[Rfam]
RNA sequence: CUCUGGGCCUGCAUUAUGGGCUCAGGGCGUGAAAGAG
Number, nucleotide and partner (000 for none) at each position: 001c027002u026003c025004u024005g023006g022007g021008c020009c019010u018011g017012c000013a000014u000015u000016a000017u011018g010019g009020g008021c007022u006023c005024a004025g003026g002027g001028c000029g000030u000031g000032a000033a000034a000035g000036a000037g000
Shown here is a 37-nucleotide RNA, a member of the family "L31-Firmicutes ribosomal protein leader". For this family Rfam cites "Discovery of 20 novel ribosomal leader candidates in bacteria and archaea" (Eckert and Weinberg, BMC Microbiol, 2020).